Makes More Granules Regulator RNA (mmgR): a 76-nucleotide RNA from Methylobacterium sp. 4-46.
Pairs were carried over by alignment from the consensus structure.
The source organism's lineage runs through Bacteria, Pseudomonadota, Hyphomicrobiales, Methylobacteriaceae and Methylobacterium.
SuhB later renamed mmgR (makes more granules regulator) was a putative non-coding RNA found multiple times in the Agrobacterium tumefaciens genome and related alpha-proteobacteria.
The sequence is in the family's curated seed alignment.
The family's RNA type in Rfam is small RNA.
[Rfam]
RNA sequence: CCUCGCAGCCCUCCAUGGGCGUUUCCUCCCUAGACUUCAGGCCGCCCUAUGUGGGCGGCCUCUUUUCUAGAACACC
Numbered sequence: 001c002c003u004c005g006c007a008g009c010c011c012u013c014c015a016u017g018g019g020c021g022u023u024u025c026c027u028c029c030c031u032a033g034a035c036u037u038c039a040g041g042c043c044g045c046c047c048u049a050u051g052u053g054g055g056c057g058g059c060c061u062c063u064u065u066u067c068u069a070g071a072a073c074a075c076c
Stems, first nucleotide, its partner, number of pairs: 008020004039061009